RNA sequence: UUUCUUAACUCACAGUGUUUCCCAGCCGCCUGGCUCCCAUCCGGCCCCAGCAGCGCUCUGGUGGGCACCAGGGCGCCGAUCCACGGCGAUGCCCAGGUCUGUGCUCCUUGGUGAGCCCAGGGAGGACACGUGGUUGGCAUCCCACAGCCAGUCCGUGAUGGGACGUGAUUGCAGGAGGCUGGUAUCUCUG
Numbered sequence: 001u002u003u004c005u006u007a008a009c010u011c012a013c014a015g016u017g018u019u020u021c022c023c024a025g026c027c028g029c030c031u032g033g034c035u036c037c038c039a040u041c042c043g044g045c046c047c048c049a050g051c052a053g054c055g056c057u058c059u060g061g062u063g064g065g066c067a068c069c070a071g072g073g074c075g076c077c078g079a080u081c082c083a084c085g086g087c088g089a090u091g092c093c094c095a096g097g098u099c100u101g102u103g104c105u106c107c108u109u110g111g112u113g114a115g116c117c118c119a120g121g122g123a124g125g126a127c128a129c130g131u132g133g134u135u136g137g138c139a140u141c142c143c144a145c146a147g148c149c150a151g152u153c154c155g156u157g158a159u160g161g162g163a164c165g166u167g168a169u170u171g172c173a174g175g176a177g178g179c180u181g182g183u184a185u186c187u188c189u190g
Base pairs, nucleotide, nucleotide: 001178002177003176004175005174006173019163020162021161022160023078025076026075028074029073036065037064038063039062040061041060043058044057045055086142088141089140090139091138092137093136100128101127102126104124105123106122107121108120109119110118

The family of this 190-nucleotide sequence from Phyllostomus discolor is "Small Cajal body specific RNA 6". It is annotated as a small Cajal body RNA. A search with the family's covariance model found it, with a score of 91 bits. Rfam describes the family as follows. U88 is small Cajal body specific RNA (scaRNA). scaRNAs are a novel class of small nuclear RNAs which localise to the Cajal bodies. U88 is found associated with both fibrillarin and Gar1p and co-localises with coilin in Cajal bodies. Its family is annotated with nucleolus and RNA processing in the Gene Ontology. The organism belongs to Phyllostomus, within Eukaryota. On this family, see Darzacq et al., EMBO J 2002: "Cajal body-specific small nuclear RNAs: a novel class of 2'-O-methylation and pseudouridylation guide RNAs". The base pairs follow the family's consensus structure, which is taken from published work.